[Rfam]
RNA sequence: AAGAGAAUAUCAUUUGUACCGUAGACAGUAGGUGCUCGGCAUGAGCUUAAUUUCCUACCGAGGUGUUUUGUUUAUAGAAAGCAAAGUGCAUCUUGUGGUGCUUUACAGUACCUCCAUGUCUACGUGGCAUGGAGGUUUUCUUAUGAACGG
Numbered sequence: 001a002a003g004a005g006a007a008u009a010u011c012a013u014u015u016g017u018a019c020c021g022u023a024g025a026c027a028g029u030a031g032g033u034g035c036u037c038g039g040c041a042u043g044a045g046c047u048u049a050a051u052u053u054c055c056u057a058c059c060g061a062g063g064u065g066u067u068u069u070g071u072u073u074a075u076a077g078a079a080a081g082c083a084a085a086g087u088g089c090a091u092c093u094u095g096u097g098g099u100g101c102u103u104u105a106c107a108g109u110a111c112c113u114c115c116a117u118g119u120c121u122a123c124g125u126g127g128c129a130u131g132g133a134g135g136u137u138u139u140c141u142u143a144u145g146a147a148c149g150g
Base pairs, nucleotide, nucleotide: 028058029057030056031055032054034046035045036044111135112134113133114132115131116130117129118128119127120126
Ribosomal protein L10 leader: a 150-nucleotide RNA from Anoxybacillus sp. B7M1. The match comes from Rfam's covariance-model search (82 bits). This family is a putative r-protein leader autoregulatory structure found in B. subtilis and other low-GC Gram-positive bacteria. The organism belongs to Anoxybacillus, within Bacteria.